[Rfam]
RNA sequence: GCCGCCUUAUGACAGGAAGGACUGAAAUGUCUCGAAGACCUGUGGUCUUUCCUCGAUGUUCCUGCGGC
Numbered sequence: 001g002c003c004g005c006c007u008u009a010u011g012a013c014a015g016g017a018a019g020g021a022c023u024g025a026a027a028u029g030u031c032u033c034g035a036a037g038a039c040c041u042g043u044g045g046u047c048u049u050u051c052c053u054c055g056a057u058g059u060u061c062c063u064g065c066g067g068c
Stems, first nucleotide, its partner, number of pairs: 001068005014053010029039003